[Rfam]
RNA sequence: UGGUGCCCAACGUGGGGCCUGGAUACUGGGGGACAACGUGAGGGACACGACGGAAGAAGAAGGGGUGCGCACCCGCUCACAUAGUUCGGAGACGUCGCGGUAGCCUGCUGUGACCGAGCCGACAGGUAAGUUGGUCGUUAAUCAUGGGGCAAGAAUUAAGUCAGCAUCAGAAAUAUGUGAUACAGUUAAGAGAAGCUCUACAGACAAGAGGAAUAAAGGUUACAACUGAGGAUUUAUUUCUUUGAUAUCAUAAAAGUCAUCUGCCCAU
Numbered sequence: 001u002g003g004u005g006c007c008c009a010a011c012g013u014g015g016g017g018c019c020u021g022g023a024u025a026c027u028g029g030g031g032g033a034c035a036a037c038g039u040g041a042g043g044g045a046c047a048c049g050a051c052g053g054a055a056g057a058a059g060a061a062g063g064g065g066u067g068c069g070c071a072c073c074c075g076c077u078c079a080c081a082u083a084g085u086u087c088g089g090a091g092a093c094g095u096c097g098c099g100g101u102a103g104c105c106u107g108c109u110g111u112g113a114c115c116g117a118g119c120c121g122a123c124a125g126g127u128a129a130g131u132u133g134g135u136c137g138u139u140a141a142u143c144a145u146g147g148g149g150c151a152a153g154a155a156u157u158a159a160g161u162c163a164g165c166a167u168c169a170g171a172a173a174u175a176u177g178u179g180a181u182a183c184a185g186u187u188a189a190g191a192g193a194a195g196c197u198c199u200a201c202a203g204a205c206a207a208g209a210g211g212a213a214u215a216a217a218g219g220u221u222a223c224a225a226c227u228g229a230g231g232a233u234u235u236a237u238u239u240c241u242u243u244g245a246u247a248u249c250a251u252a253a254a255a256g257u258c259a260u261c262u263g264c265c266c267a268u
Base pairs, nucleotide, nucleotide: 006031007030008029012026013025014024037049038048039047086126087125088123093116094115096112097111098110099109100108132152134150135149138147139146140145157200158199160196161195208243209242210241211240212239213238217235218234219233220232221231253268256265258263
Shown here is a 268-nucleotide RNA from Nannospalax galili, a member of the family "Mason-Pfizer monkey virus packaging signal". The family's consensus secondary structure was predicted with PFOLD. The family's RNA type in Rfam is cis-regulatory element. Rfam 15.1 lists 2,921 matches to the family in 53 species.